[Rfam]
RNA: SAM riboswitch aptamer (S box leader)
Organism: Aneurinibacillus migulanus
RNA sequence: UUCUUAUCAAGAGCGGCAGAGGGACUGGCCCGAUGAAGCCCGGCAACCCCUUGCAUCUUACGCAUGAGCGAAGGUGUAUGGAAGGUGCCAAAUCCUGCAGGAGAAUAUCCUGAGAGAUGAGAG
Numbered sequence: 001u002u003c004u005u006a007u008c009a010a011g012a013g014c015g016g017c018a019g020a021g022g023g024a025c026u027g028g029c030c031c032g033a034u035g036a037a038g039c040c041c042g043g044c045a046a047c048c049c050c051u052u053g054c055a056u057c058u059u060a061c062g063c064a065u066g067a068g069c070g071a072a073g074g075u076g077u078a079u080g081g082a083a084g085g086u087g088c089c090a091a092a093u094c095c096u097g098c099a100g101g102a103g104a105a106u107a108u109c110c111u112g113a114g115a116g117a118u119g120a121g122a123g
Base pairs, nucleotide, nucleotide: 001123002122003121004120005119006118007117008116013041015040016039017038021031022030023029025097027095028094042089043088044087045086047085048084049081050080052078053077054076055075056074057073058072059071093115098112099111100110101109102108